The record is a 91-nucleotide RNA sequence from Chrysodeixis includens, which matches "mir-282 microRNA precursor family" in Rfam. NCBI's taxonomy places the organism under Eukaryota, Opisthokonta, Metazoa, Panorpida, Chrysodeixis. A reference for the family is Li et al. (2009), "Direct sequencing and expression analysis of a large number of miRNAs in Aedes aegypti and a multi-species survey of novel mosquito miRNAs", BMC Genomics. Rfam links the family to the GO terms RISC complex and miRNA-mediated post-transcriptional gene silencing.
[Rfam]
RNA sequence: CAGGGAUGUUGACCUAGCCUCUCCUUGGCUUUGUCUGUAUCUUUAAGAUGUCUCAGACAUAGCCUGAUAGAGGUUACGUUUAGUCCCAGUG
Numbered sequence: 001c002a003g004g005g006a007u008g009u010u011g012a013c014c015u016a017g018c019c020u021c022u023c024c025u026u027g028g029c030u031u032u033g034u035c036u037g038u039a040u041c042u043u044u045a046a047g048a049u050g051u052c053u054c055a056g057a058c059a060u061a062g063c064c065u066g067a068u069a070g071a072g073g074u075u076a077c078g079u080u081u082a083g084u085c086c087c088a089g090u091g
Stems, first nucleotide, its partner, number of pairs: 012079002015076006027064004032059005